Overview:
A member of the RNA family "Eukaryotic large subunit ribosomal RNA" from Rotaria sordida, 448 nucleotides of a longer RNA. Its family is annotated with ribosome and structural constituent of ribosome in the Gene Ontology. Taxonomically the source falls in Rotaria (Eukaryota, Eumetazoa, Eurotatoria, Bdelloidea).
RNA sequence: CGAAUGGCCGCAUUCAUCAGAUUACUUUGAAUUCAAUUCGAUCUCUAUAUGAUGGUAAUACAUGUCGAUUUGGAACUUCAACAGUCCAUCGAUUUGUUCUUGCCUAGAAUCGGAUGCAUUUUCAAGGUAUUAACUGAACCUGGAUCUAUAACAUUGAAAGCUAGUCGAAUCAGUCUAUUUUGGUAGCGAGUAUUACUCGUGUUAAAAAUAUGACUUGCAUAAAUAACAAAUUCGACUUGGCGUUAUAGGUAAACAGACAUGUUCUUUGAUUUCAGUACUUUCGAGUACGGCAUGCCAUGAGCAUUGUUUGUGUCACAUGAGUAACUAAUAUUUAACCAAUAUUAGUUUUAUUCAUUGUCGAUGCCUAAUGUUUUGUGGCUGUCAAUGAAAUCGGCAAGUCUACAGGAGUUUUGAAUGCCGAGUUAUUCGACCCGUCUUGAAACACGGU
Numbered sequence: 001c002g003a004a005u006g007g008c009c010g011c012a013u014u015c016a017u018c019a020g021a022u023u024a025c026u027u028u029g030a031a032u033u034c035a036a037u038u039c040g041a042u043c044u045c046u047a048u049a050u051g052a053u054g055g056u057a058a059u060a061c062a063u064g065u066c067g068a069u070u071u072g073g074a075a076c077u078u079c080a081a082c083a084g085u086c087c088a089u090c091g092a093u094u095u096g097u098u099c100u101u102g103c104c105u106a107g108a109a110u111c112g113g114a115u116g117c118a119u120u121u122u123c124a125a126g127g128u129a130u131u132a133a134c135u136g137a138a139c140c141u142g143g144a145u146c147u148a149u150a151a152c153a154u155u156g157a158a159a160g161c162u163a164g165u166c167g168a169a170u171c172a173g174u175c176u177a178u179u180u181u182g183g184u185a186g187c188g189a190g191u192a193u194u195a196c197u198c199g200u201g202u203u204a205a206a207a208a209u210a211u212g213a214c215u216u217g218c219a220u221a222a223a224u225a226a227c228a229a230a231u232u233c234g235a236c237u238u239g240g241c242g243u244u245a246u247a248g249g250u251a252a253a254c255a256g257a258c259a260u261g262u263u264c265u266u267u268g269a270u271u272u273c274a275g276u277a278c279u280u281u282c283g284a285g286u287a288c289g290g291c292a293u294g295c296c297a298u299g300a301g302c303a304u305u306g307u308u309u310g311u312g313u314c315a316c317a318u319g320a321g322u323a324a325c326u327a328a329u330a331u332u333u334a335a336c337c338a339a340u341a342u343u344a345g346u347u348u349u350a351u352u353c354a355u356u357g358u359c360g361a362u363g364c365c366u367a368a369u370g371u372u373u374u375g376u377g378g379c380u381g382u383c384a385a386u387g388a389a390a391u392c393g394g395c396a397a398g399u400c401u402a403c404a405g406g407a408g409u410u411u412u413g414a415a416u417g418c419c420g421a422g423u424u425a426u427u428c429g430a431c432c433c434g435u436c437u438u439g440a441a442a443c444a445c446g447g448u
Base pairs, nucleotide, nucleotide: 001429002428003427004426005425006424007423008422009420010419011417012416017132020131021130022129025126026125136409139406140405141404142403432447433446434445435444